[Rfam]
RNA: Lysine riboswitch aptamer
Organism: Metabacillus sediminilitoris
Nucleotides: 183
Base pairs, nucleotide, nucleotide: 008176009175010174011173017086018085019084020083021082022081023080024079025078033071034070035069036068037067038066040064090120091119092118093117094116095115096114097113098112099111101109121147122146124144125143126142127141128140129139130138131137149168150167151166152165153164154163155162
Number, partner (000 for none) and nucleotide at each position: 001000c002000g003000g004000u005000g006000a007000g008176g009175u010174a011173g012000a013000g014000g015000u016000u017086g018085c019084a020083g021082c022081g023080g024079u025078u026000a027000u028000g029000a030000g031000u032000a033071g034070u035069g036068u037067u038066u039000u040064u041000g042000g043000a044000g045000a046000u047000c048000u049000g050000g051000u052000g053000g054000g055000a056000u057000u058000g059000u060000a061000g062000a063000a064040a065000u066038a067037a068036a069035c070034a071033c072000a073000a074000a075000a076000g077000g078025a079024a080023u081022u082021g083020c084019u085018g086017c087000c088000g089000a090120a091119g092118u093117a094116u095115g096114g097113g098112u099111a100000a101109c102000c103000a104000c105000a106000c107000c108000a109101g110000c111099u112098a113097u114096c115095c116094a117093u118092a119091c120090u121147g122146g123000g124144a125143c126142u127141g128140c129139a130138u131137c132000a133000a134000a135000a136000a137131g138130g139129u140128g141127u142126a143125g144124u145000a146122c147121u148000g149168u150167c151166a152165u153164a154163g155162a156000u157000u158000a159000a160000c161000a162155u163154c164153u165152a166151u167150g168149g169000a170000g171000a172000g173011c174010u175009a176008u177000g178000a179000a180000g181000a182000g183000a